[Rfam]
RNA sequence: GUUGGACCCGGUUUCCGGGUGGCUCGGCCCGGCGCCUAUCCCCGGGAUAACC
Numbered sequence: 001g002u003u004g005g006a007c008c009c010g011g012u013u014u015c016c017g018g019g020u021g022g023c024u025c026g027g028c029c030c031g032g033c034g035c036c037u038a039u040c041c042c043c044g045g046g047a048u049a050a051c052c
Stems, first nucleotide, its partner, number of pairs: 006020006028046005